RNA sequence: AUUGAGUGGGAAUAAAAAGCUAACUUGAUUUAAAGAGAGAACGCCUAUUUGACAGCAUUUGUCCUAAGUUAAAAUGGACAAAAUAAGUUAAAAAUAAGAUAUUUCCCUGCCAAAAACCCUGCCAAUAAAACAUUUUGGCGGGGAAUUUUGU
Numbered sequence: 001a002u003u004g005a006g007u008g009g010g011a012a013u014a015a016a017a018a019g020c021u022a023a024c025u026u027g028a029u030u031u032a033a034a035g036a037g038a039g040a041a042c043g044c045c046u047a048u049u050u051g052a053c054a055g056c057a058u059u060u061g062u063c064c065u066a067a068g069u070u071a072a073a074a075u076g077g078a079c080a081a082a083a084u085a086a087g088u089u090a091a092a093a094a095u096a097a098g099a100u101a102u103u104u105c106c107c108u109g110c111c112a113a114a115a116a117c118c119c120u121g122c123c124a125a126u127a128a129a130a131c132a133u134u135u136u137g138g139c140g141g142g143g144a145a146u147u148u149u150g151u
Base pairs, nucleotide, nucleotide: 008107009106010105011104012103049091050090051089052088053087057084058083060080061079062078063077064076114147115146117143118142119141120140121139122138123137124136125135

Shown here is a 151-nucleotide RNA from Pueribacillus theae, a member of the family "Listeria sRNA rli38". A search with the family's covariance model found it, with a score of 83 bits. The organism belongs to Pueribacillus, within Bacteria.